[Rfam]
RNA: Enterococcus sRNA 68 (Lacto-3 RNA)
Organism: Lentilactobacillus senioris
RNA sequence: UGCGAUGAGUCGAGCUAUCACGCAACUUCGGUUGUUCGCGCAAGCGAUUUAAGUGAUUUUUCGAGCGGGACACAUAUCUACCGUAUUGUAGGUGUCUGAUUAGUUGAGGUUGUGGAGCUU
Numbered sequence: 001u002g003c004g005a006u007g008a009g010u011c012g013a014g015c016u017a018u019c020a021c022g023c024a025a026c027u028u029c030g031g032u033u034g035u036u037c038g039c040g041c042a043a044g045c046g047a048u049u050u051a052a053g054u055g056a057u058u059u060u061u062c063g064a065g066c067g068g069g070a071c072a073c074a075u076a077u078c079u080a081c082c083g084u085a086u087u088g089u090a091g092g093u094g095u096c097u098g099a100u101u102a103g104u105u106g107a108g109g110u111u112g113u114g115g116a117g118c119u120u
Base pairs, nucleotide, nucleotide: 017057018056019055020054021053022035023034024033025032026031036047037046038045039044069096070095071094072093073092078091079090080089081088107120108119109118110117111116